[Rfam]
RNA sequence: GGGCCUGGUUUCCUAGGGGUUGGGCUCAGUGUACUCCACCUCCUCUCAGCUAAGCCUAGAGUAGAGGGCAGGAGCACCUGUGUGGGAGAGCUGCUUAAGCAAGGAGCAUUGCCUGGGCUGCCCUAGCCUCACAUUU
Numbered sequence: 001g002g003g004c005c006u007g008g009u010u011u012c013c014u015a016g017g018g019g020u021u022g023g024g025c026u027c028a029g030u031g032u033a034c035u036c037c038a039c040c041u042c043c044u045c046u047c048a049g050c051u052a053a054g055c056c057u058a059g060a061g062u063a064g065a066g067g068g069c070a071g072g073a074g075c076a077c078c079u080g081u082g083u084g085g086g087a088g089a090g091c092u093g094c095u096u097a098a099g100c101a102a103g104g105a106g107c108a109u110u111g112c113c114u115g116g117g118c119u120g121c122c123c124u125a126g127c128c129u130c131a132c133a134u135u136u
Base pairs, nucleotide, nucleotide: 002056003055004054006052007051015044016043017042018041019040021038022037023036024035066130067128068127069126070124071123072122077116078115084109086107
Small Cajal body specific RNA 21: a 136-nucleotide RNA sequence from Mesocricetus auratus. Taxonomically the source falls in Mesocricetus (Eukaryota, Bilateria, Vertebrata, Cricetinae). Rfam 15.1 lists 278 matches to the family in 138 species. By type it is a small Cajal body RNA. It scores 103 bits against the family's covariance model. About the family: scaRNAs are a specific class of small nuclear RNAs which localise to the Cajal bodies and guide the modification of RNA polymerase II transcribed spliceosomal RNAs U1, U2, U4, U5 and U12. ACA68 (SCARNA21) is a member of the H/ACA class of snoRNAs that guide the sites of modification of uridines to pseudouridines. This snoRNA was identified by computational screening and its expression in mouse experimentally verified by Northern blot and primer extension analysis. ACA68 is proposed to guide the pseudouridylation of residue U19 in U12 snRNA.